[Rfam]
Nucleotides: 592
Stems, first nucleotide, its partner, number of pairs: 001582002004579001006577005012454005019446001020413001026411003030408003035069002041066002047061002076366003085291004092284001096282001101278002116151001119148001125141006158189004166181001194244006210230002214223003254271006292338003299329003304326002308322004341363004345356004368389006391402004419444001421443003427439005459488003462484008471475001495515002525571006538565004547554002
Number, partner (000 for none) and nucleotide at each position: 001582a002581u003000c004579a005000u006577a007576u008575g009574c010573u011000u012454g013453u014452c015451c016450c017000g018000a019446a020413g021000c022000u023000u024000a025000a026411g027410c028409c029000a030408u031407g032406c033000a034000u035069g036068u037000c038000u039000c040000c041066g042065a043000a044000c045000a046000a047061u048060a049000g050000u051000a052000g053000c054000u055000u056000g057000a058000u059000c060048u061047a062000g063000a064000a065042u066041c067000u068036g069035c070000g071000a072000a073000c074000g075000g076366c077365u078364c079000c080000g081000u082000a083000u084000a085291u086290c087289u088288g089000u090000u091000a092284c093000a094000a095000a096282c097000c098000c099000c100000c101278a102277c103000c104000g105000c106000c107000g108000a109000c110000c111000g112000a113000c114000c115000a116151u117000c118000g119148g120000c121000a122000u123000a124000a125141c126140c127139a128138c129137g130136g131000u132000a133000a134000u135000u136130c137129u138128g139127u140126g141125g142000c143000u144000a145000a146000u147000a148119c149000g150000u151116g152000u153000a154000c155000u156000a157000c158189g159188g160187g161186c162000g163000c164000u165000g166181c167000c168000u169000g170000c171000c172000c173000g174000c175000a176000a177000g178000g179000g180000c181166g182000g183000g184000c185000g186161g187160c188159c189158c190000c191000g192000g193000u194244c195243u196242u197241g198240c199239c200000g201000g202000a203000c204000g205000a206000c207000c208000a209000a210230c211229g212000g213000c214223g215222g216221u217000g218000c219000a220000a221216a222215c223214c224000g225000c226000u227000c228000g229211c230210g231000c232000g233000a234000g235000c236000g237000c238000u239199g240198g241197c242196a243195a244194g245000g246000g247000u248000a249000c250000c251000u252000g253000a254271c255270c256269g257268g258267g259266c260000a261000a262000a263000c264000a265000a266259g267258u268257c269256c270255g271254g272000c273000g274000c275000g276000u277102g278101u279000g280000a281000u282096g283000c284092g285000c286000a287000c288088c289087a290086g291085a292338c293337c294336u295000a296000u297000c298000a299329a300328c301327u302000a303000g304326a305325u306000a307000c308322c309321c310320a311319g312000g313000c314000a315000u316000u317000g318000c319311c320310u321309g322308g323000a324000c325305a326304u327301g328300g329299u330000g331000a332000c333000u334000a335000c336294g337293g338292g339000u340000a341363c342362a343361g344360a345356g346355a347354a348353u349000u350000a351000g352000g353348g354347u355346u356345c357000g358000a359000u360344u361343c362342u363341g364078g365077a366076g367000a368389g369388g370387u371386a372385g373384c374000c375000u376000g377000a378000g379000a380000g381000a382000u383000c384373g385372c386371u387370a388369c389368c390000a391402c392401u393400u394399c395000u396000a397000a398000g399394g400393a401392a402391g403000g404000c405000a406032g407031c408030a409028g410027g411026c412000g413020c414000g415000c416000a417000a418000c419444g420000u421443u422442c423441c424000c425000a426000a427439u428438g429437g430436g431435g432000a433000u434000a435431c436430c437429c438428u439427g440000a441423g442422g443421a444419c445000g446019u447000g448000a449000a450016g451015g452014g453013a454012u455000a456000u457000a458000c459488c460487a461486a462484u463483g464482c465481c466480c467479g468478g469477c470000c471475u472000u473000u474000a475471a476000a477469g478468c479467c480466g481465g482464g483463c484462a485000a486461u487460u488459g489000g490000a491000a492000u493000g494000g495515g496514g497000a498000a499000c500000a501000u502000c503000u504000a505000a506000a507000c508000c509000c510000c511000a512000c513000a514496c515495c516000g517000a518000g519000u520000a521000a522000c523000a524000a525571u526570u527569g528568g529567a530566g531000g532000a533000c534000a535000a536000g537000u538565c539564u540563g541562g542000u543000g544000c545000c546000a547554g548553c549000a550000c551000c552000c553548g554547c555000g556000g557000u558000a559000a560000u561000u562541c563540c564539a565538g566530c567529u568528c569527c570526g571525a572000u573010a574009g575008c576007a577006u578000c579004u580000u581002a582001u583000u584000a585000a586000g587000u588000u589000g590000u591000u592000g